c-di-AMP riboswitch aptamer (ydaO/yuaA leader): a 197-nucleotide RNA from Anabaena sp. 90. Taxonomically the source falls in Anabaena (Bacteria, Bacillati, Cyanophyceae, Nostocales).
RNA sequence: UGAGUAAGUCAGCUUAAUCCAGUACAUUUCAGUUAAUAGUGCUGGAACGGAGGAACCAAAUUGUGGGGCGUAUUUUUGUCUUGAUGAGUUUAGGAAUUUAAGCUUUAAAACUCAAAUCAAAUCUAAAAUUGAGCAAAAAAGGGGAUCUCUCAACCCUAGCCCGUCAGCUAACUUCGUAGGCAUUGAGAGGAGACUGA
Numbered sequence: 001u002g003a004g005u006a007a008g009u010c011a012g013c014u015u016a017a018u019c020c021a022g023u024a025c026a027u028u029u030c031a032g033u034u035a036a037u038a039g040u041g042c043u044g045g046a047a048c049g050g051a052g053g054a055a056c057c058a059a060a061u062u063g064u065g066g067g068g069c070g071u072a073u074u075u076u077u078g079u080c081u082u083g084a085u086g087a088g089u090u091u092a093g094g095a096a097u098u099u100a101a102g103c104u105u106u107a108a109a110a111c112u113c114a115a116a117u118c119a120a121a122u123c124u125a126a127a128a129u130u131g132a133g134c135a136a137a138a139a140a141g142g143g144g145a146u147c148u149c150u151c152a153a154c155c156c157u158a159g160c161c162c163g164u165c166a167g168c169u170a171a172c173u174u175c176g177u178a179g180g181c182a183u184u185g186a187g188a189g190g191a192g193a194c195u196g197a
Stems, first nucleotide, its partner, number of pairs: 012181003018046008047177006057065002066162003074138006141156003